[Rfam]
RNA sequence: AAUAGUUACAAUUCAUUCCCGAUAGGAUUCACGUUUGUGAAGAUGCCUUGUAACCAUUUAAAAUUAUUAAUUCAAAUGGGGGACGUAUUUUAUG
Number, nucleotide and partner (000 for none) at each position: 001a000002a000003u000004a000005g000006u000007u000008a000009c000010a000011a000012u000013u000014c000015a000016u000017u083018c082019c081020c080021g000022a000023u000024a048025g047026g046027a000028u041029u040030c039031a038032c037033g000034u000035u000036u000037g032038u031039g030040a029041a028042g000043a000044u000045g000046c026047c025048u024049u000050g000051u000052a000053a000054c079055c078056a077057u076058u075059u074060a000061a000062a000063a000064u000065u000066a000067u000068u000069a000070a000071u000072u000073c000074a059075a058076a057077u056078g055079g054080g020081g019082g018083a017084c000085g000086u000087a000088u000089u000090u000091u000092a000093u000094g000

Notes:
A member of the RNA family "SAM-III riboswitch aptamer (SMK box)" from Ligilactobacillus araffinosus, 94 nucleotides long.